[Rfam]
RNA: FGF-1 internal ribosome entry site (IRES)
Organism: Fukomys damarensis
RNA sequence: GCCUCAGGGGGACCAGGGCAUCGCCUCUUUCUCUUGAAGGACACUCCCUUCUGAUGGUGAAUGGGAACUCCCUUCCUCUGCAGCCAGCCCACAGCCUCCGGUACUGUGAAGGCUGCAGCAGCUGACCCUGCCCUGAAGGAAGGCGCCCCAGAGC
Numbered sequence: 001g002c003c004u005c006a007g008g009g010g011g012a013c014c015a016g017g018g019c020a021u022c023g024c025c026u027c028u029u030u031c032u033c034u035u036g037a038a039g040g041a042c043a044c045u046c047c048c049u050u051c052u053g054a055u056g057g058u059g060a061a062u063g064g065g066a067a068c069u070c071c072c073u074u075c076c077u078c079u080g081c082a083g084c085c086a087g088c089c090c091a092c093a094g095c096c097u098c099c100g101g102u103a104c105u106g107u108g109a110a111g112g113c114u115g116c117a118g119c120a121g122c123u124g125a126c127c128c129u130g131c132c133c134u135g136a137a138g139g140a141a142g143g144c145g146c147c148c149c150a151g152a153g154c
Stems, first nucleotide, its partner, number of pairs: 003153003008149004014139001015049004024040003028036001050136002057078001059075003063072003080128001081124004089118001092115003096112001098111001